[Rfam]
RNA: permuted transfer-messenger RNA
RNA sequence: GGUUGUAUGAUACAACUCAAAAGGCGGGUAAGACGUGGGUUCGACUCCCACCCAGUCCACCAGAAAAAAUCUCACCUUAUGUAUAAAUUGCUGCAGCAGUUUAUCAUAUUGAAGAUAGUGUGCCCAUAAAAGAGCACUUAAAGCGAAGAAGGGCUAUCGAGGUUUUCCCUAAUGGGCUGGUCAUGGUUUCGAUUGCGCGAUGAGUAGGGAAGUGGACAACUCGUCAGGAGUAGACGUUAAAAGCAAAUUAAAAUAAAUGCAAAUGAUGAAACAUUCAGCAUGGCACUAGCAGCCUAA
Numbered sequence: 001g002g003u004u005g006u007a008u009g010a011u012a013c014a015a016c017u018c019a020a021a022a023g024g025c026g027g028g029u030a031a032g033a034c035g036u037g038g039g040u041u042c043g044a045c046u047c048c049c050a051c052c053c054a055g056u057c058c059a060c061c062a063g064a065a066a067a068a069a070u071c072u073c074a075c076c077u078u079a080u081g082u083a084u085a086a087a088u089u090g091c092u093g094c095a096g097c098a099g100u101u102u103a104u105c106a107u108a109u110u111g112a113a114g115a116u117a118g119u120g121u122g123c124c125c126a127u128a129a130a131a132g133a134g135c136a137c138u139u140a141a142a143g144c145g146a147a148g149a150a151g152g153g154c155u156a157u158c159g160a161g162g163u164u165u166u167c168c169c170u171a172a173u174g175g176g177c178u179g180g181u182c183a184u185g186g187u188u189u190c191g192a193u194u195g196c197g198c199g200a201u202g203a204g205u206a207g208g209g210a211a212g213u214g215g216a217c218a219a220c221u222c223g224u225c226a227g228g229a230g231u232a233g234a235c236g237u238u239a240a241a242a243g244c245a246a247a248u249u250a251a252a253a254u255a256a257a258u259g260c261a262a263a264u265g266a267u268g269a270a271a272c273a274u275u276c277a278g279c280a281u282g283g284c285a286c287u288a289g290c291a292g293c294c295u296a297a
Stems, first nucleotide, its partner, number of pairs: 001221005016208001025199002029195003035051005052180007222236004